[Rfam]
Nucleotides: 075
Stems, first nucleotide, its partner, number of pairs: 001074003005070005011064003015060004020055004025050006032043001034041001
Number, partner (000 for none) and nucleotide at each position: 001074g002073g003072c004000c005070c006069a007068a008067a009066u010000u011064u012063g013062g014000a015060g016059u017058a018057g019000u020055g021054u022053a023052g024000a025050u026049u027048a028047g029046u030045a031000g032043g033000a034041u035000a036000g037000g038000u039000u040000g041034a042000c043032c044000c045030u046029a047028c048027u049026a050025a051000a052023c053022u054021a055020c056000u057018c058017u059016a060015c061000c062013u063012c064011a065000a066009g067008u068007u069006u070005g071000u072003g073002c074001u075000c